Overview: The record is a 145-nucleotide RNA from Gossypium mustelinum, which matches "MIR7502 microRNA precursor family" in Rfam. The source organism's lineage runs through Eukaryota, Streptophytina, Tracheophyta, Pentapetalae and Gossypium.
[Rfam]
RNA sequence: UGUUAAAAAUUUUAUUUAUUUCUAUUGUUAAAAACUAUCAUGAUUAAUAGAAUAAUCAGAUAAUUAAAAGUGGUGUCUCACAUGCACCACAUUCUAACAUAUAAAAACCGAUUUUUAAAAGUAUAAAUUGAUAUAAUAUUUAACA
Numbered sequence: 001u002g003u004u005a006a007a008a009a010u011u012u013u014a015u016u017u018a019u020u021u022c023u024a025u026u027g028u029u030a031a032a033a034a035c036u037a038u039c040a041u042g043a044u045u046a047a048u049a050g051a052a053u054a055a056u057c058a059g060a061u062a063a064u065u066a067a068a069a070g071u072g073g074u075g076u077c078u079c080a081c082a083u084g085c086a087c088c089a090c091a092u093u094c095u096a097a098c099a100u101a102u103a104a105a106a107a108c109c110g111a112u113u114u115u116u117a118a119a120a121g122u123a124u125a126a127a128u129u130g131a132u133a134u135a136a137u138a139u140u141u142a143a144c145a
Stems, first nucleotide, its partner, number of pairs: 002144006009137003013133004018128004023123004028118006